[Rfam]
RNA sequence: GAGGGCGGGCCCCUCGAACACGCCGAUUAGGCGGUGUGUUCAAACCACCCUGAGCUGCAUUUGUAAAGAGCGUUUGUGACCCGCUUUAGUGCGAGACCGAAAUAAAAGACGUUUUUAGGG
Numbered sequence: 001g002a003g004g005g006c007g008g009g010c011c012c013c014u015c016g017a018a019c020a021c022g023c024c025g026a027u028u029a030g031g032c033g034g035u036g037u038g039u040u041c042a043a044a045c046c047a048c049c050c051u052g053a054g055c056u057g058c059a060u061u062u063g064u065a066a067a068g069a070g071c072g073u074u075u076g077u078g079a080c081c082c083g084c085u086u087u088a089g090u091g092c093g094a095g096a097c098c099g100a101a102a103u104a105a106a107a108g109a110c111g112u113u114u115u116u117a118g119g120g
Stems, first nucleotide, its partner, number of pairs: 001015005016041006023034003045120002048091001050089004054080001057077003062072003099115005
Dot-bracket structure: (((((.....)))))((((((.(((......))).))))))...((.(.(((((..(((..(((.....)))..)))..).....)))).).......(((((.......)))))...))
Rfam assigns this 120-nucleotide RNA from Glaciecola punicea to the family "Group II catalytic intron D1-D4-2". The pairing is the family consensus, mapped onto this sequence. On this family, see Bonen and Vogel, Trends Genet 2001: "The ins and outs of group II introns". Rfam 15.1 lists 1,231 matches to the family in 625 species. The organism belongs to Glaciecola punicea, within Bacteria.